[Rfam]
Glycine riboswitch aptamer: a 104-nucleotide sequence from Streptomyces sp. AJS327. Taxonomically the source falls in Streptomyces (Bacteria, Bacillati, Actinomycetes, Streptomycetaceae).
RNA sequence: AGAACCCGCGCGGGAGAGUCCCCGGAGCGCAGCGAGCGCGUCGGGGCGCCGAAGGAGCAAGAUCCUCCCUUGAAUCUCUCAGGCCCCGAUACCGCGCGGGUGAG
Numbered sequence: 001a002g003a004a005c006c007c008g009c010g011c012g013g014g015a016g017a018g019u020c021c022c023c024g025g026a027g028c029g030c031a032g033c034g035a036g037c038g039c040g041u042c043g044g045g046g047c048g049c050c051g052a053a054g055g056a057g058c059a060a061g062a063u064c065c066u067c068c069c070u071u072g073a074a075u076c077u078c079u080c081a082g083g084c085c086c087c088g089a090u091a092c093c094g095c096g097c098g099g100g101u102g103a104g
Base pairs, nucleotide, nucleotide: 006099007098008097009096010095011094012093013092020046021045022044023043024042025041048084049083050082051080052079055078056077057076061071062070